[Rfam]
RNA sequence: AUAAUUGUUUGACAAUGAGAGAGAGCACGCUUGUAAGUAUUCAUGAAACGGUCGUGAUUGUGUACAUGCGUGCUCUUUCUCAUUGUCAUGCAAUU
Numbered sequence: 001a002u003a004a005u006u007g008u009u010u011g012a013c014a015a016u017g018a019g020a021g022a023g024a025g026c027a028c029g030c031u032u033g034u035a036a037g038u039a040u041u042c043a044u045g046a047a048a049c050g051g052u053c054g055u056g057a058u059u060g061u062g063u064a065c066a067u068g069c070g071u072g073c074u075c076u077u078u079c080u081c082a083u084u085g086u087c088a089u090g091c092a093a094u095u
Stems, first nucleotide, its partner, number of pairs: 010088005016082002020078002023075001025073006032066003
Background: The family of this 95-nucleotide RNA sequence from Quercus lobata is "MIR535 microRNA precursor family". The base pairs follow the family's consensus structure, which was predicted with RNAalifold. The source organism's lineage runs through Eukaryota, Streptophytina, Tracheophyta, Fagales and Quercus.